RAGATH-18 RNA: a 76-nucleotide RNA. Actinobacteria, Firmicutes, Fusobacteria, Thermotogae (1 example). The family's consensus secondary structure is taken from published work.

RNA sequence: CCUGUGGAGUGUUAUAUCAAACUGUAGUAGUCUGUUGCUAAAGUAACGACAAGGCAGGACACGAUUGAAGCAGGAA
Numbered sequence: 001c002c003u004g005u006g007g008a009g010u011g012u013u014a015u016a017u018c019a020a021a022c023u024g025u026a027g028u029a030g031u032c033u034g035u036u037g038c039u040a041a042a043g044u045a046a047c048g049a050c051a052a053g054g055c056a057g058g059a060c061a062c063g064a065u066u067g068a069a070g071c072a073g074g075a076a
Stems, first nucleotide, its partner, number of pairs: 001074005009062005022057003030050003035043002